[Rfam]
RNA sequence: CUCAAGGGGUUCACCGCGACGACCCCGUGAGGCUCCGGCCCAAGGUUCGCGUCCAGAUUCCUUAUCUUCAGGAUGGACGCCAUG
Numbered sequence: 001c002u003c004a005a006g007g008g009g010u011u012c013a014c015c016g017c018g019a020c021g022a023c024c025c026c027g028u029g030a031g032g033c034u035c036c037g038g039c040c041c042a043a044g045g046u047u048c049g050c051g052u053c054c055a056g057a058u059u060c061c062u063u064a065u066c067u068u069c070a071g072g073a074u075g076g077a078c079g080c081c082a083u084g
Stems, first nucleotide, its partner, number of pairs: 006026005049080006
chrB-a RNA: an 84-nucleotide RNA sequence from Allobosea sp. OK403. The base pairs follow the family's consensus structure, which is taken from published work.